[Rfam]
RNA sequence: GAACCAGGGGGUCGGGUUGUUCUGCUUGCGGAGUGACCUAGAGGUACAGGGAGUACCCCCUUCAUCGGACCGGGUUCUGUGUGGC
Numbered sequence: 001g002a003a004c005c006a007g008g009g010g011g012u013c014g015g016g017u018u019g020u021u022c023u024g025c026u027u028g029c030g031g032a033g034u035g036a037c038c039u040a041g042a043g044g045u046a047c048a049g050g051g052a053g054u055a056c057c058c059c060c061u062u063c064a065u066c067g068g069a070c071c072g073g074g075u076u077c078u079g080u081g082u083g084g085c
Base pairs, nucleotide, nucleotide: 001077002076003075004074005073010071011070012069013068014039015038016037017036018035020033021032022031023030024029041059043057044056045055046054047053